[Rfam]
RNA sequence: CCAACUAGGCGUCCAUAUAUGCCCCUGGCAUUUCCCUGUACGUUAGCGACGAUCCGCAAGGUAGCGACGAUGUUGGACCAGGUCUGCCGGCGUUCCUUGGCCAGGAUGGCAGCCUGGU
Numbered sequence: 001c002c003a004a005c006u007a008g009g010c011g012u013c014c015a016u017a018u019a020u021g022c023c024c025c026u027g028g029c030a031u032u033u034c035c036c037u038g039u040a041c042g043u044u045a046g047c048g049a050c051g052a053u054c055c056g057c058a059a060g061g062u063a064g065c066g067a068c069g070a071u072g073u074u075g076g077a078c079c080a081g082g083u084c085u086g087c088c089g090g091c092g093u094u095c096c097u098u099g100g101c102c103a104g105g106a107u108g109g110c111a112g113c114c115u116g117g118u
Stems, first nucleotide, its partner, number of pairs: 001076005006070001008068001009043004014038002020030004046065002054061002078117004084112006096105003
Flavobacterium-1 RNA: a 118-nucleotide sequence. The family's consensus secondary structure is taken from published work.